ArcZ RNA: a 106-nucleotide RNA from Gibbsiella quercinecans. About the family: This RNA was discovered in E. coli during a large scale screen. SraH expression is highly abundant in stationary phase, but low levels could be detected in exponentially growing cells as well. ArcZ RNA function as an activator of the alternative sigma factor RpoS as a response of stress. ArcZ afects and is also affected by the ArcA-ArcB regulon (aerobic/anaerobic-sensing ArcA-ArcB two-component). Taxonomically the source falls in Gibbsiella (Bacteria, Gammaproteobacteria, Enterobacterales, Yersiniaceae). The literature on the family includes a 2010 paper in EMBO J by Mandin and Gottesman, "Integrating anaerobic/aerobic sensing and the general stress response through the ArcZ small RNA". Rfam classes the family as a small RNA. Gene Ontology terms of the family: regulation of translation and protein binding.

RNA sequence: UGGUAGCCAACUUAUAGUGGCUUGCGAGAUGAAAAUAGAAAAAACAACUACGCAGGUUAAUGAUUUCCCUGGUGUUGGCGCAAUAUUCGCGCACCCCGGCUUAGGC
Numbered sequence: 001u002g003g004u005a006g007c008c009a010a011c012u013u014a015u016a017g018u019g020g021c022u023u024g025c026g027a028g029a030u031g032a033a034a035a036u037a038g039a040a041a042a043a044a045c046a047a048c049u050a051c052g053c054a055g056g057u058u059a060a061u062g063a064u065u066u067c068c069c070u071g072g073u074g075u076u077g078g079c080g081c082a083a084u085a086u087u088c089g090c091g092c093a094c095c096c097c098g099g100c101u102u103a104g105g106c
Stems, first nucleotide, its partner, number of pairs: 019058008071095003078092004